Rfam assigns this 123-nucleotide RNA sequence from Mionectes macconnelli to the family "Small nucleolar RNA SNORA32". The match comes from Rfam's covariance-model search (62 bits). Rfam describes the family as follows. ACA32 is a member of the H/ACA class of snoRNA that guide the sites of modification of uridines to pseudouridines. Gene Ontology terms of the family: RNA processing and nucleolus.
[Rfam]
RNA sequence: UGGUCAUUACCAAGGCUGCUGGGAUGUUACUGUUUCUGGUGAGCUGUGGACAUGACCAUAAAGCAAAUCCAUCAGGCUCUUGUAUUGCCACUCAAUGUAGCACUGAGUCUGCUGGGAAUAAAC
Number, nucleotide and partner (000 for none) at each position: 001u000002g000003g056004u055005c054006a053007u052008u000009a000010c049011c048012a047013a000014g000015g000016c000017u000018g000019c000020u000021g000022g000023g000024a000025u000026g044027u043028u042029a000030c000031u000032g000033u000034u000035u000036c000037u000038g000039g000040u000041g000042a028043g027044c026045u000046g000047u012048g011049g010050a000051c000052a007053u006054g005055a004056c003057c000058a000059u000060a000061a000062a000063g000064c000065a000066a000067a000068u116069c115070c114071a113072u000073c000074a000075g109076g108077c107078u106079c000080u000081u000082g000083u000084a000085u000086u102087g101088c100089c000090a000091c000092u000093c000094a000095a000096u000097g000098u000099a000100g088101c087102a086103c000104u000105g000106a078107g077108u076109c075110u000111g000112c000113u071114g070115g069116g068117a000118a000119u000120a000121a000122a000123c000